[Rfam]
A member of the RNA family "Small nucleolar RNA SNORA58" from Eurystomus gularis, 134 nucleotides long. The family is grouped with related families in Rfam's "SNORA44 clan". ACA52 is a member of the H/ACA class of snoRNA that guide the sites of modification of uridines to pseudouridines. It is annotated as an H/ACA-box small nucleolar RNA. Lineage of the source: Eukaryota > Opisthokonta > Chordata > Dinosauria > Eurystomus. Rfam links the family to the GO terms RNA processing and nucleolus.
RNA sequence: CCGCAUACCAGUAGACCUUAUCUGGUUGUUCUUGUAGCCAGACGAGGGGGAUGGUGCAUGCUACAGAACCGGGGGUUGCUGCAGGCCCUGGUCAGCCUUGGCGUGGCUGAUGGAACUGCGAUACUCCAACACAU
Numbered sequence: 001c002c003g004c005a006u007a008c009c010a011g012u013a014g015a016c017c018u019u020a021u022c023u024g025g026u027u028g029u030u031c032u033u034g035u036a037g038c039c040a041g042a043c044g045a046g047g048g049g050g051a052u053g054g055u056g057c058a059u060g061c062u063a064c065a066g067a068a069c070c071g072g073g074g075g076u077u078g079c080u081g082c083a084g085g086c087c088c089u090g091g092u093c094a095g096c097c098u099u100g101g102c103g104u105g106g107c108u109g110a111u112g113g114a115a116c117u118g119c120g121a122u123a124c125u126c127c128a129a130c131a132c133a134u
Stems, first nucleotide, its partner, number of pairs: 003061004008056001016047004021042004072127004077123001080120003092110005